[Rfam]
RNA sequence: GAAUGUCACAGCUCUUUUAGAAUUUGUCUAACAAGUUUUCCGGUCCUCACCAGAAGAUCCCC
Numbered sequence: 001g002a003a004u005g006u007c008a009c010a011g012c013u014c015u016u017u018u019a020g021a022a023u024u025u026g027u028c029u030a031a032c033a034a035g036u037u038u039u040c041c042g043g044u045c046c047u048c049a050c051c052a053g054a055a056g057a058u059c060c061c062c
Stems, first nucleotide, its partner, number of pairs: 035058006042051003

A member of the RNA family "U7 small nuclear RNA" from Prolemur simus, 62 nucleotides long. Rfam's curators write: Animal histone pre-mRNAs are spliced by a different mechanism than nuclear pre-mRNAs and self-splicing introns. This processing involves the U7 snRNP, which contains only one RNA species: U7. The base pairs follow the family's consensus structure, which was predicted with PFOLD. A reference for the family is Marz et al. (2007), "U7 snRNAs: a computational survey", Genomics Proteomics Bioinformatics. The source organism's lineage runs through Eukaryota, Opisthokonta, Deuterostomia, Lemuridae and Prolemur.